[Rfam]
RNA sequence: GGAGGCACAUCCGUCACUGGUGGACGGCCCGGUCUUCAAAACCGGUGAGGGGGAUGAGAAAUCCCCCUGGAAGGUUCGAUUCCUUUGUGCCUCC
Numbered sequence: 001g002g003a004g005g006c007a008c009a010u011c012c013g014u015c016a017c018u019g020g021u022g023g024a025c026g027g028c029c030c031g032g033u034c035u036u037c038a039a040a041a042c043c044g045g046u047g048a049g050g051g052g053g054a055u056g057a058g059a060a061a062u063c064c065c066c067c068u069g070g071a072a073g074g075u076u077c078g079a080u081u082c083c084u085u086u087g088u089g090c091c092u093c094c
Stems, first nucleotide, its partner, number of pairs: 001094009011027005017022001029045005048068005071085004
The record is a 94-nucleotide RNA sequence from a Geobacteraceae bacterium, which matches "Selenocysteine transfer RNA" in Rfam. Clan: tRNA clan. The family's consensus secondary structure is taken from published work.